[Rfam]
RNA: Streptomyces RNA 4115
RNA sequence: GCGUGGGUCGGUCCACUGCUGGUGGGCCGGGGGAUGCCGCCGGCCUAUUCCCCGCGGACGGCGGAACGGUCCGGGAGGCAGCUGUCCGAUGGGAAUCGCUUCCCGGGCCGCA
Numbered sequence: 001g002c003g004u005g006g007g008u009c010g011g012u013c014c015a016c017u018g019c020u021g022g023u024g025g026g027c028c029g030g031g032g033g034a035u036g037c038c039g040c041c042g043g044c045c046u047a048u049u050c051c052c053c054g055c056g057g058a059c060g061g062c063g064g065a066a067c068g069g070u071c072c073g074g075g076a077g078g079c080a081g082c083u084g085u086c087c088g089a090u091g092g093g094a095a096u097c098g099c100u101u102c103c104c105g106g107g108c109c110g111c112a
Stems, first nucleotide, its partner, number of pairs: 001111002006067001008065001009029009030035001037064006044057002068109012